[Rfam]
RNA: Purine riboswitch aptamer
Organism: Shouchella clausii
RNA sequence: AAGUUAAAAACGAAAACACCUCAUAUAUACUCGGGAAUAUGGCUCGAACGUUUCUACCCGGCAACCGUAAAUUGCCGGACUAUGAGGGGAAGUCAUUACGCG
Numbered sequence: 001a002a003g004u005u006a007a008a009a010a011c012g013a014a015a016a017c018a019c020c021u022c023a024u025a026u027a028u029a030c031u032c033g034g035g036a037a038u039a040u041g042g043c044u045c046g047a048a049c050g051u052u053u054c055u056a057c058c059c060g061g062c063a064a065c066c067g068u069a070a071a072u073u074g075c076c077g078g079a080c081u082a083u084g085a086g087g088g089g090a091a092g093u094c095a096u097u098a099c100g101c102g
Stems, first nucleotide, its partner, number of pairs: 019087007031047005058078007